[Rfam]
Nucleotides: 090
Stems, first nucleotide, its partner, number of pairs: 012037002017032006040084004045080003048075003055069004
Number, partner (000 for none) and nucleotide at each position: 001000a002000a003000c004000a005000g006000a007000c008000a009000a010000a011000g012037g013036c014000a015000a016000a017032c018031c019030u020029a021028u022027u023000g024000a025000a026000a027022a028021a029020u030019a031018g032017g033000g034000a035000c036013g037012c038000a039000a040084a041083g042082u043081c044000a045080c046079a047078g048075g049074u050073c051000u052000a053000a054000g055069g056068u057067u058066g059000g060000a061000g062000a063000a064000a065000u066058c067057a068056a069055u070000u071000a072000u073050g074049a075048u076000g077000g078047c079046u080045g081043g082042a083041c084040u085000g086000c087000c088000u089000g090000g